RNA sequence: GGGUGCGAGGCGCAGAGGGGCGCCACGCAGGAGUCGCGAAGGUCGGGCCGCCUCG
Dot-bracket structure: ....(((.((((........)))).)))........(((.(((......))))))
Numbered sequence: 001g002g003g004u005g006c007g008a009g010g011c012g013c014a015g016a017g018g019g020g021c022g023c024c025a026c027g028c029a030g031g032a033g034u035c036g037c038g039a040a041g042g043u044c045g046g047g048c049c050g051c052c053u054c055g
Stems, first nucleotide, its partner, number of pairs: 005028003009024004037055003041052003
Annotation:
A member of the RNA family "nhaA-I RNA" from Pseudacidovorax intermedius, 55 nucleotides long. Pairs were carried over by alignment from the consensus structure, which is taken from published work. Rfam classes the family as a riboswitch. Acidobacteria, Alphaproteobacteria, Betaproteobacteria and Gammaproteobacteria, Verrucomicrobia, cand. division NC10.